Rfam assigns this 228-nucleotide RNA sequence from Trifolium medium to the family "MIR2630 microRNA precursor family".
Taxonomically the source falls in Trifolium (Eukaryota, Streptophyta, Tracheophyta, Euphyllophyta).
Gene Ontology terms of the family: miRNA-mediated post-transcriptional gene silencing and RISC complex.

[Rfam]
RNA sequence: CCUUGCAAAUAUAUAGCAGUUUAUUUUUGGUCCUUGAUGUUUUAUUUUAGUCCUUGCAAAAUAUGUUCAUUUUUAAAUUAGUUCCUGUAAUAUUUAUUUUAGUCCUUAUUUUAAAGGACUAAAAUCAAAUAUUUUAUAUAUUACAAGGACCAAUUUAAAAAUGAAUCAAUUUUGUAAGGACUAAACAAAGCAAAGGACCAAAAACAAAAUAUUAUAUAUUUGCUGUUG
Numbered sequence: 001c002c003u004u005g006c007a008a009a010u011a012u013a014u015a016g017c018a019g020u021u022u023a024u025u026u027u028u029g030g031u032c033c034u035u036g037a038u039g040u041u042u043u044a045u046u047u048u049a050g051u052c053c054u055u056g057c058a059a060a061a062u063a064u065g066u067u068c069a070u071u072u073u074u075a076a077a078u079u080a081g082u083u084c085c086u087g088u089a090a091u092a093u094u095u096a097u098u099u100u101a102g103u104c105c106u107u108a109u110u111u112u113a114a115a116g117g118a119c120u121a122a123a124a125u126c127a128a129a130u131a132u133u134u135u136a137u138a139u140a141u142u143a144c145a146a147g148g149a150c151c152a153a154u155u156u157a158a159a160a161a162u163g164a165a166u167c168a169a170u171u172u173u174g175u176a177a178g179g180a181c182u183a184a185a186c187a188a189a190g191c192a193a194a195g196g197a198c199c200a201a202a203a204a205c206a207a208a209a210u211a212u213u214a215u216a217u218a219u220u221u222g223c224u225g226u227u228g
Stems, first nucleotide, its partner, number of pairs: 006222008015213002018210001020208002024204012038192006045185001047184003051180002054177009066165002069162006078153002081150004088143006108125005